[Rfam]
RNA sequence: CCUUGUCGAAGCGCUGUACCUCCUCCCACGGCGCCCGGCAUUCGAUCGGUUCACUCCUCCUCCCAGAACCGAUCAGGUUUAAGACCCCGAGCCACCUCCUCCCGGCUCGGGGUCUUUCU
Number, nucleotide and partner (000 for none) at each position: 001c000002c000003u000004u000005g000006u000007c037008g036009a000010a000011g034012c033013g032014c031015u030016g029017u000018a000019c000020c000021u000022c000023c000024u000025c000026c000027c000028a000029c016030g015031g014032c013033g012034c011035c000036c008037g007038g000039c000040a000041u000042u000043c000044g074045a073046u072047c071048g070049g069050u068051u067052c066053a000054c000055u000056c000057c000058u000059c000060c000061u000062c000063c000064c000065a000066g052067a051068a050069c049070c048071g047072a046073u045074c044075a000076g000077g000078u000079u000080u000081a000082a000083g114084a113085c112086c111087c110088c109089g108090a107091g106092c105093c104094a000095c000096c000097u000098c000099c000100u000101c000102c000103c000104g093105g092106c091107u090108c089109g088110g087111g086112g085113u084114c083115u000116u000117u000118c000119u000
The family of this 119-nucleotide RNA sequence from Sinorhizobium medicae is "Alphaproteobacterial ar14". By type it is a small RNA. The base pairs follow the family's consensus structure. NCBI's taxonomy places the organism under Bacteria, Pseudomonadota, Alphaproteobacteria, Sinorhizobium, Sinorhizobium medicae. For this family Rfam cites "A survey of sRNA families in alpha-proteobacteria" (del Val et al., RNA Biol, 2012). The family has 118 seed sequences and 784 matches in Rfam 15.1. Rfam's curators put it in the seed alignment.